Source information:
A member of the RNA family "malK-I RNA", 182 nucleotides long. The sequence is in the family's curated seed alignment.
RNA sequence: UCUAACUUUUCUAUGAUACUCAACAUUAAUACCAUGGAAAAGUAUAAAAAAGGAGGAUAAACCCGUCAGACUCACGGUGCGGCAGUGUGGAGACCUGUCUUAAAGCUCCCGGAAUUUUGCUUUCCGGUCAGCGAGAACGCACGCGAAAUAGUAGGUGCAUUUAGAGUCAAAAAACUAUGGCA
Number, nucleotide and partner (000 for none) at each position: 001u000002c000003u000004a000005a000006c042007u041008u040009u039010u038011c037012u036013a035014u034015g033016a000017u031018a030019c000020u000021c000022a000023a000024c000025a000026u000027u000028a000029a000030u018031a017032c000033c015034a014035u013036g012037g011038a010039a009040a008041a007042g006043u000044a000045u000046a000047a000048a000049a000050a000051a000052g000053g000054a000055g000056g000057a000058u000059a000060a000061a000062c000063c077064c076065g075066u074067c000068a000069g168070a167071c166072u165073c164074a066075c065076g064077g063078u102079g101080c000081g099082g098083c097084a096085g095086u000087g094088u093089g000090g000091a000092g000093a088094c087095c085096u084097g083098u082099c081100u000101u079102a078103a000104a000105g132106c131107u130108c000109c127110c126111g125112g124113a000114a000115u000116u000117u000118u000119g000120c000121u000122u000123u000124c112125c111126g110127g109128u000129c000130a107131g106132c105133g000134a000135g162136a161137a160138c000139g158140c157141a156142c155143g000144c000145g000146a000147a000148a000149u000150a000151g000152u000153a000154g000155g142156u141157g140158c139159a000160u137161u136162u135163a000164g073165a072166g071167u070168c069169a000170a000171a000172a000173a000174a000175c000176u000177a000178u000179g000180g000181c000182a000